[Rfam]
RNA sequence: AGGUAAUGCCUACUGAACCUUUAUCACUGUAGGUACUCGGUCACACUGUGGGUUCGUAACCUUAGACGUUAAUCGUCAAGGGUGUGAUGUGAGGGGGGGUUAAAUGCCCA
Numbered sequence: 001a002g003g004u005a006a007u008g009c010c011u012a013c014u015g016a017a018c019c020u021u022u023a024u025c026a027c028u029g030u031a032g033g034u035a036c037u038c039g040g041u042c043a044c045a046c047u048g049u050g051g052g053u054u055c056g057u058a059a060c061c062u063u064a065g066a067c068g069u070u071a072a073u074c075g076u077c078a079a080g081g082g083u084g085u086g087a088u089g090u091g092a093g094g095g096g097g098g099g100u101u102a103a104a105u106g107c108c109c110a
Stems, first nucleotide, its partner, number of pairs: 001020004007035007036093004040088008050062005065077004097109004
Annotation: Rfam assigns this 110-nucleotide RNA sequence from Paenibacillus sp. J45TS6 to the family "epsC RNA". It scores 96 bits against the family's covariance model. The family has 30 seed sequences and 450 matches in Rfam 15.1.